[Rfam]
RNA sequence: GGAAAGCAUACUCAUCCGGUGAUGUGGCCGGGCUUCAAACCCGGUGGAGGGCGUCAGCCGUUCUCCCGUAGGUUCGACUCCUACUGUUUUCC
Numbered sequence: 001g002g003a004a005a006g007c008a009u010a011c012u013c014a015u016c017c018g019g020u021g022a023u024g025u026g027g028c029c030g031g032g033c034u035u036c037a038a039a040c041c042c043g044g045u046g047g048a049g050g051g052c053g054u055c056a057g058c059c060g061u062u063c064u065c066c067c068g069u070a071g072g073u074u075c076g077a078c079u080c081c082u083a084c085u086g087u088u089u090u091c092c
Stems, first nucleotide, its partner, number of pairs: 001092008011026001013024004027045006047065005069083004
Rfam assigns this 92-nucleotide RNA sequence from Janthinobacterium agaricidamnosum to the family "Selenocysteine transfer RNA". The family has 109 seed sequences and 4,211 matches in Rfam 15.1. Taxonomically the source falls in Janthinobacterium agaricidamnosum (Bacteria, Pseudomonadota, Oxalobacteraceae, Janthinobacterium).